[Rfam]
RNA: mir-26 microRNA precursor family
Organism: Poecilia reticulata
RNA sequence: CUGCUGCCAAGUGCAAGUAAUCAAGGAUAGGCUGAAGUAGAUCCACAAAGCCUAUCCUGGAUUACUUGAACGAGGUUGCAG
Numbered sequence: 001c002u003g004c005u006g007c008c009a010a011g012u013g014c015a016a017g018u019a020a021u022c023a024a025g026g027a028u029a030g031g032c033u034g035a036a037g038u039a040g041a042u043c044c045a046c047a048a049a050g051c052c053u054a055u056c057c058u059g060g061a062u063u064a065c066u067u068g069a070a071c072g073a074g075g076u077u078g079c080a081g
Base pairs, nucleotide, nucleotide: 002080003079004078007075008074011071012070014068015067016066017065018064019063020062021061022060024058025057026056027055028054029053030052031051032050033049